SAM riboswitch aptamer (S box leader): a 105-nucleotide sequence from Mahella australiensis.
NCBI's taxonomy places the organism under Bacteria, Bacillati, Clostridia, Mahellaceae, Mahella australiensis.
[Rfam]
RNA sequence: CCUUUAUCCAGAGAGGUGGAGGGACGGGCCCGAUGAAACCCAGCAACCGGCCAUUAGGUCCGGUGCUAAUUCCUGCAGGAGGUAUUUCCUUCUGAAAGAUGAGGG
Dot-bracket structure: ((((((((....(.(((...(((.[[[[)))......))))((((.((((((....)))).))))))...(]]]]((((((.......))))))..)))))))))
Numbered sequence: 001c002c003u004u005u006a007u008c009c010a011g012a013g014a015g016g017u018g019g020a021g022g023g024a025c026g027g028g029c030c031c032g033a034u035g036a037a038a039c040c041c042a043g044c045a046a047c048c049g050g051c052c053a054u055u056a057g058g059u060c061c062g063g064u065g066c067u068a069a070u071u072c073c074u075g076c077a078g079g080a081g082g083u084a085u086u087u088c089c090u091u092c093u094g095a096a097a098g099a100u101g102a103g104g105g
Stems, first nucleotide, its partner, number of pairs: 001105008013041001015040003021031003025075004042067004047063002049060004071097001076094006

It scores 90 bits against the family's covariance model.